[Rfam]
RNA sequence: GGGUUGCACGUAGAGCAGAGGGCCUAAAUAAAUGGCUCAUCUGUUUAUAGCCCACCAGACAGGAAUCUGGGUUCACUGUGACAAGAGGCACAAAACUUCUAGUGUUUCAAUGAACAAAUAUCCAAACUGU
Numbered sequence: 001g002g003g004u005u006g007c008a009c010g011u012a013g014a015g016c017a018g019a020g021g022g023c024c025u026a027a028a029u030a031a032a033u034g035g036c037u038c039a040u041c042u043g044u045u046u047a048u049a050g051c052c053c054a055c056c057a058g059a060c061a062g063g064a065a066u067c068u069g070g071g072u073u074c075a076c077u078g079u080g081a082c083a084a085g086a087g088g089c090a091c092a093a094a095a096c097u098u099c100u101a102g103u104g105u106u107u108c109a110a111u112g113a114a115c116a117a118a119u120a121u122c123c124a125a126a127c128u129g130u
Stems, first nucleotide, its partner, number of pairs: 003056001005054002013046007021038001022036003070123002073120001077116003082112002085105001087103001090100001092098002
The record is a 130-nucleotide sequence from Bos taurus, which matches "Small nucleolar RNA SNORA11" in Rfam. Rfam describes the family as follows. U107 (SNORA11) is a member of the H/ACA class of snoRNAs that guide the sites of modification of uridines to pseudouridines. This snoRNA was identified by RT-PCR from blood cells and its expression confirmed by Northern blot analysis. There is no predicted target for this guide snRNA. The family has 35 seed sequences and 2,014 matches in Rfam 15.1. Gene Ontology terms of the family: RNA processing and nucleolus. The literature on the family includes a 2005 paper in Nucleic Acids Res by Gu et al., "A novel experimental approach for systematic identification of box H/ACA snoRNAs from eukaryotes".